[Rfam]
RNA sequence: UCCUUAUCGCGAGCAGGGGAGGAAAUUGGUCCCGUGAUCCUGCAGCAACCUGUUAUUUUCUUCUCGAAAAUAAUAAGGUGCUACGUCCAACAGACGCUGUUGUCUGAAAGAUGAGGA
Numbered sequence: 001u002c003c004u005u006a007u008c009g010c011g012a013g014c015a016g017g018g019g020a021g022g023a024a025a026u027u028g029g030u031c032c033c034g035u036g037a038u039c040c041u042g043c044a045g046c047a048a049c050c051u052g053u054u055a056u057u058u059u060c061u062u063c064u065c066g067a068a069a070a071u072a073a074u075a076a077g078g079u080g081c082u083a084c085g086u087c088c089a090a091c092a093g094a095c096g097c098u099g100u101u102g103u104c105u106g107a108a109a110g111a112u113g114a115g116g117a
Base pairs, nucleotide, nucleotide: 001117002116003115004114005113006112007111008110013043014042015041016040017039021032022031023030026090027089028088029087044082045081046080047079049078050077051075052074053073054072055071056070057069058068059067086109091106092105093104094103095102096101
Record summary
The family of this 117-nucleotide sequence from Thalassobacillus cyri is "SAM riboswitch aptamer (S box leader)". A search with the family's covariance model found it, with a score of 80 bits.